[Rfam]
RNA sequence: UGCACUGCACAGUUCUGCAUUCAACAGUUUAUUCCUUCUGGGGUGUUCAAAGGUCAGUGACACAGAAAUCCAGUAUCUGGCAUCUUUGGUUUUCUUGGCUUUGUGCAUAUUUAACCUUGUAUCUAUUGAUACAGUA
Dot-bracket structure: ..(((((......((((((((((..((.......))..).))))))....))).)))))....(((..((.((......((((...................)))).........)).).))))............

The record is a 136-nucleotide RNA from Prolemur simus, which matches "Small nucleolar RNA SNORA8" in Rfam. NCBI's taxonomy places the organism under Eukaryota, Sarcopterygii, Primates, Lemuridae, Prolemur. Rfam describes the family as follows. ACA8 is a member of the H/ACA class of snoRNA that guide the sites of modification of uridines to pseudouridines. The family's consensus secondary structure was predicted with RNAfold. By type it is an H/ACA-box small nucleolar RNA. The family is grouped with related families in Rfam's "SNORA8 clan".